The family of this 82-nucleotide RNA sequence from Acyrthosiphon pisum is "Mammalian CPEB3 ribozyme".
About the family: The mammalian CPEB3 ribozyme is a self cleaving RNA located in the second intron of the CPEB3 gene which belongs to a family of genes regulating messenger RNA polyadenylation.
The source organism's lineage runs through Eukaryota, Protostomia, Pancrustacea, Hemiptera and Acyrthosiphon.

[Rfam]
RNA sequence: AGUGUACAUUCCGGGGGCUAGGCAGAAACCUUCACGUGGUGCCCCUGUUAAUGCUGUGGUCUCACAGCUAACUAAUUCUGCC
Numbered sequence: 001a002g003u004g005u006a007c008a009u010u011c012c013g014g015g016g017g018c019u020a021g022g023c024a025g026a027a028a029c030c031u032u033c034a035c036g037u038g039g040u041g042c043c044c045c046u047g048u049u050a051a052u053g054c055u056g057u058g059g060u061c062u063c064a065c066a067g068c069u070a071a072c073u074a075a076u077u078c079u080g081c082c
Base pairs, nucleotide, nucleotide: 013045014044015043016042018041021082022081023080024079025078026077027076028040029039030038049071051069053068054067055066056065057064058063